[Rfam]
RNA sequence: CUCGGACCCAUGAAGGCCUGCACUGAAGACAGGUCACUGUUGGUGCAGGCUGGAUGCUUCUCCGGC
Numbered sequence: 001c002u003c004g005g006a007c008c009c010a011u012g013a014a015g016g017c018c019u020g021c022a023c024u025g026a027a028g029a030c031a032g033g034u035c036a037c038u039g040u041u042g043g044u045g046c047a048g049g050c051u052g053g054a055u056g057c058u059u060c061u062c063c064g065g066c
Stems, first nucleotide, its partner, number of pairs: 002065004015051010030039003

Background: The family of this 66-nucleotide sequence from Dryobates pubescens is "Selenocysteine insertion sequence 1". Taxonomically the source falls in Dryobates (Eukaryota, Craniata, Gnathostomata, Picidae). A search with the family's covariance model found it, with a score of 37 bits.